A member of the RNA family "RT-16 RNA", 158 nucleotides long. The family's RNA type in Rfam is small RNA.
[Rfam]
RNA sequence: UCUUGGCAUUGAUCUCUAGAGAUUGGUGUUAAGGCCACACGCUCUUUUGUCGGGACUUUCCUUUUGAGAAGUUAUGAAAUGCAGUUGUGACCUUGAGUAAGACUUUAUUGUCUGAAAAUCGAAAUAACAGUGAAGAUUAGACAAAAAAGCUAUAAGAU
Numbered sequence: 001u002c003u004u005g006g007c008a009u010u011g012a013u014c015u016c017u018a019g020a021g022a023u024u025g026g027u028g029u030u031a032a033g034g035c036c037a038c039a040c041g042c043u044c045u046u047u048u049g050u051c052g053g054g055a056c057u058u059u060c061c062u063u064u065u066g067a068g069a070a071g072u073u074a075u076g077a078a079a080u081g082c083a084g085u086u087g088u089g090a091c092c093u094u095g096a097g098u099a100a101g102a103c104u105u106u107a108u109u110g111u112c113u114g115a116a117a118a119u120c121g122a123a124a125u126a127a128c129a130g131u132g133a134a135g136a137u138u139a140g141a142c143a144a145a146a147a148a149g150c151u152a153u154a155a156g157a158u
Base pairs, nucleotide, nucleotide: 001034002033003032004031005030006029007028008027009026010025011024012023013022014021041150042149043148045146046145047144048143049142050141052137057132084128085127086126087125088124091121094118100113101112102111103110